U12 minor spliceosomal RNA: a 149-nucleotide RNA from Helobdella robusta. The family has 62 seed sequences and 2,106 matches in Rfam 15.1. Its Rfam clan is "U2 clan". The family's RNA type in Rfam is spliceosomal small nuclear RNA. The match comes from Rfam's covariance-model search (122 bits).
Nucleotides: 149
Stems, first nucleotide, its partner, number of pairs: 004023005032053005039046001054070005085148004091144007099133001103129004109123004
Number, partner (000 for none) and nucleotide at each position: 001000a002000u003000g004023c005022c006021u007020u008019a009000a010000a011000c012000u013000a014000a015000u016000g017000a018000g019008u020007a021006a022005g023004g024000a025000a026000a027000a028000u029000a030000a031000c032053g033052a034051g035050c036049c037000u038000u039046g040000g041000u042000g043000a044000c045000g046039c047000u048000u049036g050035g051034c052033u053032c054070c055069c056068a057067g058066g059000u060000u061000c062000u063000a064000a065000u066058c067057c068056u069055g070054g071000a072000a073000g074000a075000a076000u077000u078000u079000c080000u081000c082000u083000u084000c085148g086147g087146g088145u089000a090000a091144a092143g093142g094141u095140c096139g097138c098000c099133c100000u101000c102000u103129g104128g105127u106126g107000c108000c109123g110122a111121a112120c113000c114000u115000a116000c117000u118000u119000u120112g121111u122110u123109c124000c125000g126106u127105g128104c129103c130000u131000c132000u133099g134000u135000u136000g137000c138097g139096u140095g141094a142093u143092c144091u145088g146087c147086c148085c149000u